Shown here is a 132-nucleotide sequence from Clostridium magnum, a member of the family "c-di-AMP riboswitch aptamer (ydaO/yuaA leader)".

RNA sequence: AUUUAAUAGACGCUGAAUCUAAAAGAGCGGGGGAACCGUUUCCUAGGGGUGAAUCUCAAUUAAUAUUGAGUAGGGAUAGACCUUCUGUCCGAAUCCGUCAGCUAACCUCGUAAGCGUUAAAAUGGAGGUAUU
Numbered sequence: 001a002u003u004u005a006a007u008a009g010a011c012g013c014u015g016a017a018u019c020u021a022a023a024a025g026a027g028c029g030g031g032g033g034a035a036c037c038g039u040u041u042c043c044u045a046g047g048g049g050u051g052a053a054u055c056u057c058a059a060u061u062a063a064u065a066u067u068g069a070g071u072a073g074g075g076a077u078a079g080a081c082c083u084u085c086u087g088u089c090c091g092a093a094u095c096c097g098u099c100a101g102c103u104a105a106c107c108u109c110g111u112a113a114g115c116g117u118u119a120a121a122a123u124g125g126a127g128g129u130a131u132u
Stems, first nucleotide, its partner, number of pairs: 011116004018026003027111006037046001047096003055070004073090003
It scores 104 bits against the family's covariance model. A reference for the family is Barrick et al. (2004), "New RNA motifs suggest an expanded scope for riboswitches in bacterial genetic control", Proc Natl Acad Sci U S A.